RNA sequence: GCUGGCUGUGAUGACAAACUUGCCCUCUCUGAGAGAGCUUCUCUAUUAUGACACUUAAAAAUACGCUCCUGAGCCAAC
Numbered sequence: 001g002c003u004g005g006c007u008g009u010g011a012u013g014a015c016a017a018a019c020u021u022g023c024c025c026u027c028u029c030u031g032a033g034a035g036a037g038c039u040u041c042u043c044u045a046u047u048a049u050g051a052c053a054c055u056u057a058a059a060a061a062u063a064c065g066c067u068c069c070u071g072a073g074c075c076a077a078c
Base pairs, nucleotide, nucleotide: 001078003076004075005074006073